The record is an 85-nucleotide sequence from Allolucifera butyrica, which matches "c-di-GMP-I riboswitch aptamer" in Rfam. The match comes from Rfam's covariance-model search (62 bits).
RNA sequence: GCUAUAAUCAGGCUAACCUUCCUAAAGGUAGGGGCGCAAAACUAUGGGUCUAAGGGCGGGAGCCUAUGAUUGCCAGGUUGCAAUU
Numbered sequence: 001g002c003u004a005u006a007a008u009c010a011g012g013c014u015a016a017c018c019u020u021c022c023u024a025a026a027g028g029u030a031g032g033g034g035c036g037c038a039a040a041a042c043u044a045u046g047g048g049u050c051u052a053a054g055g056g057c058g059g060g061a062g063c064c065u066a067u068g069a070u071u072g073c074c075a076g077g078u079u080g081c082a083a084u085u
Stems, first nucleotide, its partner, number of pairs: 012037002017032003021028002040079004045075003048070003055064003
The base pairs follow the family's consensus structure, which is taken from published work.